glmS glucosamine-6-phosphate activated ribozyme aptamer: a 172-nucleotide RNA from Thermolongibacillus altinsuensis. From the family's description: This entry contains a glucosamine-6-phosphate activated ribozyme that is found in the mRNA for GlmS. GlmS is an enzyme that uses fructose-6-phosphate and glutamine to generate glucosamine-6-phosphate. It scores 140 bits against the family's covariance model. By type it is a riboswitch. The base pairs follow the family's consensus structure, which is taken from published work.

Nucleotides: 172
Base pairs, nucleotide, nucleotide: 020050021049022048023047024046025045026044027043029041059091060090061089062088063087068080069079070078071077092112093111094110095109096108097107116162117161118160119159120158121157122156130147131146132145133144134143135142136141
Number, partner (000 for none) and nucleotide at each position: 001000u002000u003000u004000a005000u006000u007000a008000a009000a010000a011000a012000a013000g014000c015000g016000c017000c018000u019000g020050g021049a022048c023047u024046a025045a026044g027043c028000u029041u030000u031000g032000g033000a034000c035000g036000g037000a038000g039000a040000a041029a042000a043027g044026c045025u046024u047023a048022g049021u050020u051000g052000a053000c054000g055000a056000g057000g058000a059091g060090g061089a062088g063087g064000u065000u066000u067000a068080u069079c070078g071077a072000g073000g074000u075000u076000u077071u078070c079069g080068g081000c082000g083000g084000a085000u086000g087063c088062c089061u090060c091059c092112c093111g094110g095109c096108u097107g098000u099000u100000g101000c102000g103000a104000u105000u106000a107097c108096a109095g110094c111093c112092g113000c114000a115000a116162g117161u118160c119159c120158u121157c122156u123000c124000u125000u126000a127000a128000a129000a130147c131146a132145a133144a134143g135142a136141g137000g138000c139000g140000a141136c142135u143134c144133u145132u146131u147130g148000g149000a150000c151000a152000a153000a154000g155000g156122g157121g158120a159119g160118g161117a162116c163000c164000u165000a166000a167000u168000c169000g170000c171000a172000c